[Rfam]
RNA sequence: UAAGCGGUUGCCGAAAAGCUAAUAGUAAAGAGUAGGCA
Dot-bracket structure: ..(((....[[[.....)))..............]]].